[Rfam]
RNA: U4 spliceosomal RNA
Organism: Ladona fulva
RNA sequence: AACUUUGCGCAGUGGCGAUAUCGUAACCAAUGAAGGUUUCCUGAGGUGCGAUUAUUGCUAGUUGAAAACUUAACCAAUACCCCGCUAGUUCGUCGUGAAAUACCGUCGGAUGAAGCAAUUUUUGGAGGCUUCUGCGGAAG
Numbered sequence: 001a002a003c004u005u006u007g008c009g010c011a012g013u014g015g016c017g018a019u020a021u022c023g024u025a026a027c028c029a030a031u032g033a034a035g036g037u038u039u040c041c042u043g044a045g046g047u048g049c050g051a052u053u054a055u056u057g058c059u060a061g062u063u064g065a066a067a068a069c070u071u072a073a074c075c076a077a078u079a080c081c082c083c084g085c086u087a088g089u090u091c092g093u094c095g096u097g098a099a100a101u102a103c104c105g106u107c108g109g110a111u112g113a114a115g116c117a118a119u120u121u122u123u124g125g126a127g128g129c130u131u132c133u134g135c136g137g138a139a140g
Base pairs, nucleotide, nucleotide: 020052021051022050023049024048026047027046028045034042035041036040084116085115086114088111089110090109091108092107094105095104129140130139131138132137